[Rfam]
RNA sequence: AAUAAAAAUCUGGGGAGCUAAAAUUAGCUGAGAGGAAAUAUGAAUUUCGACCCAUGAACCUGCACUGGAUAAUGCCAGCGAAGGGAGAAUAAUUUUUUAGUUU
Numbered sequence: 001a002a003u004a005a006a007a008a009u010c011u012g013g014g015g016a017g018c019u020a021a022a023a024u025u026a027g028c029u030g031a032g033a034g035g036a037a038a039u040a041u042g043a044a045u046u047u048c049g050a051c052c053c054a055u056g057a058a059c060c061u062g063c064a065c066u067g068g069a070u071a072a073u074g075c076c077a078g079c080g081a082a083g084g085g086a087g088a089a090u091a092a093u094u095u096u097u098u099a100g101u102u103u
Stems, first nucleotide, its partner, number of pairs: 007090001009088002011054004017028004035048005059084003065078004
A member of the RNA family "TPP riboswitch aptamer (THI element)" from Senegalia massiliensis, 103 nucleotides long. The base pairs follow the family's consensus structure, which is taken from published work.